[Rfam]
RNA sequence: AAACGAGGAUGGAAAGCUUGUCCAGAGAUAAGGACGCAAAGCUAAGGGCCUGUGGCUAUUUUUUAGCUAUGGCCUCCUGGUUACAGAA
Number, nucleotide and partner (000 for none) at each position: 001a000002a000003a000004c000005g000006a000007g000008g000009a000010u000011g000012g037013a000014a000015a000016g000017c032018u031019u030020g029021u028022c027023c000024a000025g000026a000027g022028a021029u020030a019031a018032g017033g000034a000035c000036g000037c012038a000039a000040a082041g081042c080043u079044a000045a078046g077047g076048g073049c072050c071051u000052g000053u000054g000055g067056c066057u065058a064059u000060u000061u000062u000063u000064u058065a057066g056067c055068u000069a000070u000071g050072g049073c048074c000075u000076c047077c046078u045079g043080g042081u041082u040083a000084c000085a000086g000087a000088a000
RNA: c-di-GMP-I riboswitch aptamer